RNA sequence: UGCCACACUAUCAAUGAAUGGAUUCAUCCACGAGAUGACGUGGCUGUUUCACAUAGGAUGAGGACAUAGCAUCCUAUUACUUAAUAGGAUAUGCCACAUCAUCAUCCUAGAUGGAACAACCGCAUCAUCUCACGGGUGAAUCCAUUAAUCGAUAGUGUAGUU
Numbered sequence: 001u002g003c004c005a006c007a008c009u010a011u012c013a014a015u016g017a018a019u020g021g022a023u024u025c026a027u028c029c030a031c032g033a034g035a036u037g038a039c040g041u042g043g044c045u046g047u048u049u050c051a052c053a054u055a056g057g058a059u060g061a062g063g064a065c066a067u068a069g070c071a072u073c074c075u076a077u078u079a080c081u082u083a084a085u086a087g088g089a090u091a092u093g094c095c096a097c098a099u100c101a102u103c104a105u106c107c108u109a110g111a112u113g114g115a116a117c118a119a120c121c122g123c124a125u126c127a128u129c130u131c132a133c134g135g136g137u138g139a140a141u142c143c144a145u146u147a148a149u150c151g152a153u154a155g156u157g158u159a160g161u162u
Stems, first nucleotide, its partner, number of pairs: 002161002005158003009154004014149002017146003021142008032131002035128004041122003045118004051112001054109002057106002063100002069094003072089007
The family of this 162-nucleotide RNA sequence from Oryza glumipatula is "MIR807 microRNA precursor family". Pairs were carried over by alignment from the consensus structure, which was predicted with WAR.